[Rfam]
RNA sequence: UUUCGGAGCCGCGCGUUCGCUCCGUUGUUCUUUUUAGAGUCUACGGGGAGGAAAGUCCGGACGCCAUAGGGCGGGAUUCCUCGCGAAAGCGGGGGAGGGUCGUUUCAAGGCGACCCGACGGCCAGUGCCACAGAGAAUAUACCGCCCUCCUUCGCCAUGGCUUCGGCGGGCAGGCCCUCGAUUUGAGGAUCUGUUUGGUGAAGGAAGGUAAGGGUGAAAAGGUGGGGUAAGAGCCCACCGCGGUUCAGGUAACUGGACUGGCAGGGUAAACCCAUUCCGGCGCAAGGCAAAAUAGGGGACCUGGACUGCCCGUCCAUUAAGGGUCCCGGGUAUGCCGCGUCACUUCGCAAGAAGGGGCUCUCGCUUCGGCGAGGCGCAGAUAAAUGAACGCGAUUCUGGUUUCGGCCAGAAUACAGGAUCCGGCUUACAGGCUCCGAAACUAG
Numbered sequence: 001u002u003u004c005g006g007a008g009c010c011g012c013g014c015g016u017u018c019g020c021u022c023c024g025u026u027g028u029u030c031u032u033u034u035u036a037g038a039g040u041c042u043a044c045g046g047g048g049a050g051g052a053a054a055g056u057c058c059g060g061a062c063g064c065c066a067u068a069g070g071g072c073g074g075g076a077u078u079c080c081u082c083g084c085g086a087a088a089g090c091g092g093g094g095g096a097g098g099g100u101c102g103u104u105u106c107a108a109g110g111c112g113a114c115c116c117g118a119c120g121g122c123c124a125g126u127g128c129c130a131c132a133g134a135g136a137a138u139a140u141a142c143c144g145c146c147c148u149c150c151u152u153c154g155c156c157a158u159g160g161c162u163u164c165g166g167c168g169g170g171c172a173g174g175c176c177c178u179c180g181a182u183u184u185g186a187g188g189a190u191c192u193g194u195u196u197g198g199u200g201a202a203g204g205a206a207g208g209u210a211a212g213g214g215u216g217a218a219a220a221g222g223u224g225g226g227g228u229a230a231g232a233g234c235c236c237a238c239c240g241c242g243g244u245u246c247a248g249g250u251a252a253c254u255g256g257a258c259u260g261g262c263a264g265g266g267u268a269a270a271c272c273c274a275u276u277c278c279g280g281c282g283c284a285a286g287g288c289a290a291a292a293u294a295g296g297g298g299a300c301c302u303g304g305a306c307u308g309c310c311c312g313u314c315c316a317u318u319a320a321g322g323g324u325c326c327c328g329g330g331u332a333u334g335c336c337g338c339g340u341c342a343c344u345u346c347g348c349a350a351g352a353a354g355g356g357g358c359u360c361u362c363g364c365u366u367c368g369g370c371g372a373g374g375c376g377c378a379g380a381u382a383a384a385u386g387a388a389c390g391c392g393a394u395u396c397u398g399g400u401u402u403c404g405g406c407c408a409g410a411a412u413a414c415a416g417g418a419u420c421c422g423g424c425u426u427a428c429a430g431g432c433u434c435c436g437a438a439a440c441u442a443g
Base pairs, nucleotide, nucleotide: 001439002438003437004436005435006434007433008432009431010430011428012392013391014390015389016388017387018386020048021047022046023045024044025043027041053426054425055424057423058422059421060420061419062282063281064280065279069311070310071309072308074278075277076276078274079094080093081092082091083090095119097116098115099114100113101112102111103110104109120273121272125271126270127267128266129265142213143212144209145208146207148205149204150203151202152201153200154199155198156197157196221239222238223237224236225235226234240262241260242259243258244257245256246255247254248253286336287335288334289333296327297326298325299324300323301322302316303315304314305313306312343374344373345372346371347370348369